[Rfam]
RNA: U2 spliceosomal RNA
RNA sequence: AUCUUCUUUAGGAGGAUCCCGAAACCAAAAAAUAGUAUCUGUUCUUUUCAGCUUAAUAUCUGAAACGCUGUUCAUUGAACAGCCAGUAUAUUAAACUGAUUUUUGGAUUUGGGCCGUGGAAUAGAGGCUUGCCUCGUCCCGGCCACGGGUUGGCCCGGUAUAGCAGUACAUCCGGGAUUCGGCCCACUCCCU
Numbered sequence: 001a002u003c004u005u006c007u008u009u010a011g012g013a014g015g016a017u018c019c020c021g022a023a024a025c026c027a028a029a030a031a032a033u034a035g036u037a038u039c040u041g042u043u044c045u046u047u048u049c050a051g052c053u054u055a056a057u058a059u060c061u062g063a064a065a066c067g068c069u070g071u072u073c074a075u076u077g078a079a080c081a082g083c084c085a086g087u088a089u090a091u092u093a094a095a096c097u098g099a100u101u102u103u104u105g106g107a108u109u110u111g112g113g114c115c116g117u118g119g120a121a122u123a124g125a126g127g128c129u130u131g132c133c134u135c136g137u138c139c140c141g142g143c144c145a146c147g148g149g150u151u152g153g154c155c156c157g158g159u160a161u162a163g164c165a166g167u168a169c170a171u172c173c174g175g176g177a178u179u180c181g182g183c184c185c186a187c188u189c190c191c192u
Stems, first nucleotide, its partner, number of pairs: 007024003011020002046065006067083007112144005118138002124135004147185006154176005